[Rfam]
RNA sequence: UUCAGUAGUAUUAAAGUGCUUAUAGUGCAGGUAGUUCUGUGGAUUUCUACUGCAGUGUGAGCACUUGAAGUACUUCUAG
Dot-bracket structure: ....(.((.(((.(((((((((((.(((.(((((............)))))))).)))))))))))..))).)).)...
RNA: mir-17 microRNA precursor family
Organism: Oryzias latipes